[Rfam]
RNA sequence: AUUACAAGAGAGUUCCGAGUUGUCAUAUCCCCCUGGGGGAGGUGAUGACCGAAAGGUAUGAAAAGUAAUUUUUGUGCCUGCCCAAUUGUGCGAAGGAAGUCUGGAAAAACCAGG
Numbered sequence: 001a002u003u004a005c006a007a008g009a010g011a012g013u014u015c016c017g018a019g020u021u022g023u024c025a026u027a028u029c030c031c032c033c034u035g036g037g038g039g040a041g042g043u044g045a046u047g048a049c050c051g052a053a054a055g056g057u058a059u060g061a062a063a064a065g066u067a068a069u070u071u072u073u074g075u076g077c078c079u080g081c082c083c084a085a086u087u088g089u090g091c092g093a094a095g096g097a098a099g100u101c102u103g104g105a106a107a108a109a110c111c112a113g114g
Base pairs, nucleotide, nucleotide: 003108011100013098014097015096016095019049020048021047022046023045024044025043026042028040029039031038032037054079055078056077057076058075059074060073061072062071063070064069080091081090
Record summary: The record is a 114-nucleotide sequence from Sporomusa termitida, which matches "Molybdenum/Tungsten riboswitch aptamer (Moco RNA motif)" in Rfam. The literature on the family includes a 2008 paper in Mol Microbiol by Regulski et al., "in molybdenum cofactor and tungsten cofactor metabolism". Lineage of the source: Bacteria > Bacillati > Bacillota > Selenomonadales > Sporomusa.